[Rfam]
RNA sequence: GAUAACCGUAGAUUACGAAGGGAUCUAACGUUGGUGCGCUGACUGUGCGUACGGUUUGGCUAACGCUGUCGUAAAUUCCACCCCAAUACAUCGCUUUUCCUGCUAGUAGUAGAGCUCCAAUGCCCAAAAACAGGAGAUGAUGUCCGAGAAUGAUGCCUAAUUGUUUAGUAUCAUCCCA
Numbered sequence: 001g002a003u004a005a006c007c008g009u010a011g012a013u014u015a016c017g018a019a020g021g022g023a024u025c026u027a028a029c030g031u032u033g034g035u036g037c038g039c040u041g042a043c044u045g046u047g048c049g050u051a052c053g054g055u056u057u058g059g060c061u062a063a064c065g066c067u068g069u070c071g072u073a074a075a076u077u078c079c080a081c082c083c084c085a086a087u088a089c090a091u092c093g094c095u096u097u098u099c100c101u102g103c104u105a106g107u108a109g110u111a112g113a114g115c116u117c118c119a120a121u122g123c124c125c126a127a128a129a130a131c132a133g134g135a136g137a138u139g140a141u142g143u144c145c146g147a148g149a150a151u152g153a154u155g156c157c158u159a160a161u162u163g164u165u166u167a168g169u170a171u172c173a174u175c176c177c178a
Stems, first nucleotide, its partner, number of pairs: 136175006145168001147166002
This 178-nucleotide RNA sequence from Gloeocapsa sp. PCC 73106 belongs to the Rfam family "Antisense RNA which regulates isiA expression".
The family has 308 seed sequences and 3,397 matches in Rfam 15.1.